A member of the RNA family "ABC transporter regulator" from Enterobacterales bacterium CwR94, 79 nucleotides long.
Taxonomically the source falls in Enterobacterales (Bacteria, Pseudomonadati, Pseudomonadota, Gammaproteobacteria).
On this family, see Chao et al., EMBO J 2012: "An atlas of Hfq-bound transcripts reveals 3' UTRs as a genomic reservoir of regulatory small RNAs".
It is annotated as a cis-regulatory element.

RNA sequence: GUGAACCAUCGUGAUGUGGUUAUUUCAAUCGGUAAUUUAUUGAUUGGGUGGGCAAUAAUCUUAUUGCCCUUUUAUUUUA
Numbered sequence: 001g002u003g004a005a006c007c008a009u010c011g012u013g014a015u016g017u018g019g020u021u022a023u024u025u026c027a028a029u030c031g032g033u034a035a036u037u038u039a040u041u042g043a044u045u046g047g048g049u050g051g052g053c054a055a056u057a058a059u060c061u062u063a064u065u066g067c068c069c070u071u072u073u074a075u076u077u078u079a
Stems, first nucleotide, its partner, number of pairs: 026046007048071001050069008